[Rfam]
RNA sequence: UGAGAGCGAUGAUGUGAAAGGUUGCCGCAAAAGCGGGAUAAUUUUCACUGAGCAAUGUCCAGUUCAAGAAACGGGGCGACAA
Numbered sequence: 001u002g003a004g005a006g007c008g009a010u011g012a013u014g015u016g017a018a019a020g021g022u023u024g025c026c027g028c029a030a031a032a033g034c035g036g037g038a039u040a041a042u043u044u045u046c047a048c049u050g051a052g053c054a055a056u057g058u059c060c061a062g063u064u065c066a067a068g069a070a071a072c073g074g075g076g077c078g079a080c081a082a
Stems, first nucleotide, its partner, number of pairs: 014048003018045004025036004056081004062077004